Description
Rfam assigns this 89-nucleotide RNA from Mesobacillus selenatarsenatis to the family "BsrC". NCBI's taxonomy places the organism under Bacteria, Bacillota, Bacilli, Caryophanales, Mesobacillus selenatarsenatis. The family has 29 seed sequences and 572 matches in Rfam 15.1. The base pairs follow the family's consensus structure, which was predicted with CMfinder. The family's RNA type in Rfam is small RNA.
RNA sequence: UUAAACCUAAACGACACAAGCCCUACCUCUCUUGUAUCCUUACGGCUCCGAAGCCGAUCCAGUGUGAAUAAGUUGAUACCUAAAAAUAA
Numbered sequence: 001u002u003a004a005a006c007c008u009a010a011a012c013g014a015c016a017c018a019a020g021c022c023c024u025a026c027c028u029c030u031c032u033u034g035u036a037u038c039c040u041u042a043c044g045g046c047u048c049c050g051a052a053g054c055c056g057a058u059c060c061a062g063u064g065u066g067a068a069u070a071a072g073u074u075g076a077u078a079c080c081u082a083a084a085a086a087u088a089a
Base pairs, nucleotide, nucleotide: 035066036065039062040061043056044055045054046053047052